[Rfam]
RNA sequence: GAGAAAUGAGGAUACAUUCUCUGUCUUACUUGUAUAGUGAAGACUUCAGAUCCAACUCUGAUCUCACACUGAUG
Numbered sequence: 001g002a003g004a005a006a007u008g009a010g011g012a013u014a015c016a017u018u019c020u021c022u023g024u025c026u027u028a029c030u031u032g033u034a035u036a037g038u039g040a041a042g043a044c045u046u047c048a049g050a051u052c053c054a055a056c057u058c059u060g061a062u063c064u065c066a067c068a069c070u071g072a073u074g
Stems, first nucleotide, its partner, number of pairs: 001065004